[Rfam]
The family of this 76-nucleotide RNA sequence is "Nucleoid-associated noncoding RNA 4 (CssrE)".
A search with the family's covariance model found it, with a score of 60 bits.
Rfam classes the family as a small RNA.
Rfam's curators write: In E. coli small RNA transcribed from repeated extragenic palindromic element (REP325) called nucleoid-associated ncRNA 4 (nRNA4) collaborates HU protein in condensing the DNA. The secondary structure but not the sequence of the RNA is important in nucleoid condensation. Also identified in Shigella as CssrE.
The base pairs follow the family's consensus structure, which is taken from published work.
RNA sequence: GGUCGGAUAAGGCGCUCGCACCGCAUCCGAAAUUGGCAGUGUGCCUGAUGCGACGCUGUUCGCGUCUUAUCAGGCC
Numbered sequence: 001g002g003u004c005g006g007a008u009a010a011g012g013c014g015c016u017c018g019c020a021c022c023g024c025a026u027c028c029g030a031a032a033u034u035g036g037c038a039g040u041g042u043g044c045c046u047g048a049u050g051c052g053a054c055g056c057u058g059u060u061c062g063c064g065u066c067u068u069a070u071c072a073g074g075c076c
Stems, first nucleotide, its partner, number of pairs: 003030006011022002014019001043075008052066005